[Rfam]
Shown here is a 59-nucleotide RNA sequence from Spelaeicoccus albus, a member of the family "msiK RNA". The family has 120 seed sequences and 1,374 matches in Rfam 15.1. NCBI's taxonomy places the organism under Bacteria, Bacillati, Actinomycetes, Brevibacteriaceae, Spelaeicoccus. Pairs were carried over by alignment from the consensus structure, which is taken from published work.
RNA sequence: AGGAUUCACCCAUCACAACGGAUCGUCUGGCACGUACCUGCCAGUGAAGGGACAGAUCG
Numbered sequence: 001a002g003g004a005u006u007c008a009c010c011c012a013u014c015a016c017a018a019c020g021g022a023u024c025g026u027c028u029g030g031c032a033c034g035u036a037c038c039u040g041c042c043a044g045u046g047a048a049g050g051g052a053c054a055g056a057u058c059g
Stems, first nucleotide, its partner, number of pairs: 009051003013047003027044006